[Rfam]
RNA sequence: AAGAGUUGUCAUGCCAUAGCUGACUAUGGUAACUCUGUAUGCAUCCGUUCAAAGUAAACACAACGAACAACCCAAUUAUGAAAGCGUUUGCCCAAGUGAUUAGCCUAGUCGUGAUUAGCGUGGUGGUGAUUAUUAUCCCACCGUGCGGGGCUGCAUUUGGACGAAAAAUGGCUUAAAACCAAGCCGAAGUCGCAAAAGAACCCCCGCACCGAAAGGUCUGGGGGUUUUUUAUUGGCAAAAGAAAAUGUACUGAGGAAGACAAAAAAAUGAAAAAUACACCAAAAUCCUUCAGCUAUCGAAGUAAGAC
Numbered sequence: 001a002a003g004a005g006u007u008g009u010c011a012u013g014c015c016a017u018a019g020c021u022g023a024c025u026a027u028g029g030u031a032a033c034u035c036u037g038u039a040u041g042c043a044u045c046c047g048u049u050c051a052a053a054g055u056a057a058a059c060a061c062a063a064c065g066a067a068c069a070a071c072c073c074a075a076u077u078a079u080g081a082a083a084g085c086g087u088u089u090g091c092c093c094a095a096g097u098g099a100u101u102a103g104c105c106u107a108g109u110c111g112u113g114a115u116u117a118g119c120g121u122g123g124u125g126g127u128g129a130u131u132a133u134u135a136u137c138c139c140a141c142c143g144u145g146c147g148g149g150g151c152u153g154c155a156u157u158u159g160g161a162c163g164a165a166a167a168a169u170g171g172c173u174u175a176a177a178a179c180c181a182a183g184c185c186g187a188a189g190u191c192g193c194a195a196a197a198g199a200a201c202c203c204c205c206g207c208a209c210c211g212a213a214a215g216g217u218c219u220g221g222g223g224g225u226u227u228u229u230u231a232u233u234g235g236c237a238a239a240a241g242a243a244a245a246u247g248u249a250c251u252g253a254g255g256a257a258g259a260c261a262a263a264a265a266a267a268u269g270a271a272a273a274a275u276a277c278a279c280c281a282a283a284a285u286c287c288u289u290c291a292g293c294u295a296u297c298g299a300a301g302u303a304a305g306a307c
Stems, first nucleotide, its partner, number of pairs: 005033008013024001015022002037076002041071001044067001046065003086260003091255002094251001099246003103236003107233002110120003122142005128137003143162002146159004163191002170185005195230011206218001208217003261294001264289002269279001
Source information
Shown here is a 307-nucleotide sequence from Gibbsiella quercinecans, a member of the family "Soft rot Enterobacteriaceae Rev 39 5'UTR". The family's RNA type in Rfam is cis-regulatory element. From bacteria cultured under starvation conditions. Its family is annotated with cellular response to starvation in the Gene Ontology. The family's consensus secondary structure was predicted with RNAfold. The literature on the family includes a 2016 paper in BMC Genomics by Kwenda et al., "Discovery and profiling of small RNAs responsive to stress conditions in the plant pathogen Pectobacterium atrosepticum". The match comes from Rfam's covariance-model search (163 bits).